[Rfam]
The family of this 107-nucleotide sequence from Pseudomonas mangiferae is "Pseudomon-Rho RNA". It scores 77 bits against the family's covariance model. By type it is a cis-regulatory element.
RNA sequence: UUCGGGCUCACAGCGGGUUUCGCCCCUGUCUUCUGCUAGCCGUCGCCGACGCCCCCCUGAUUCGAACAAGUACGCAGCGCGACUCUGUCGCCUUCCUGUGGCGCGGC
Numbered sequence: 001u002u003c004g005g006g007c008u009c010a011c012a013g014c015g016g017g018u019u020u021c022g023c024c025c026c027u028g029u030c031u032u033c034u035g036c037u038a039g040c041c042g043u044c045g046c047c048g049a050c051g052c053c054c055c056c057c058u059g060a061u062u063c064g065a066a067c068a069a070g071u072a073c074g075c076a077g078c079g080c081g082a083c084u085c086u087g088u089c090g091c092c093u094u095c096c097u098g099u100g101g102c103g104c105g106g107c
Stems, first nucleotide, its partner, number of pairs: 010029004015024001039107004044103005079091005
Dot-bracket structure: .........((((.(........).)))).........((((.(((((..............................(((((...))))).......)))))))))